[Rfam]
RNA sequence: GCGCGAUUCUUCGACUGGCGAGACAGGCCGACAGGCUGUGAACGGCAUACAGCGGACGGCGUCCAACACGUGGAACAGACCACGAGGGAGAAGGAUCGCGGGGAAAGUCUGACCGUCGUACGCCUGGGCGGGGCAG
Numbered sequence: 001g002c003g004c005g006a007u008u009c010u011u012c013g014a015c016u017g018g019c020g021a022g023a024c025a026g027g028c029c030g031a032c033a034g035g036c037u038g039u040g041a042a043c044g045g046c047a048u049a050c051a052g053c054g055g056a057c058g059g060c061g062u063c064c065a066a067c068a069c070g071u072g073g074a075a076c077a078g079a080c081c082a083c084g085a086g087g088g089a090g091a092a093g094g095a096u097c098g099c100g101g102g103g104a105a106a107g108u109c110u111g112a113c114c115g116u117c118g119u120a121c122g123c124c125u126g127g128g129c130g131g132g133g134c135a136g
Stems, first nucleotide, its partner, number of pairs: 003099010015087002017124004070083004113131005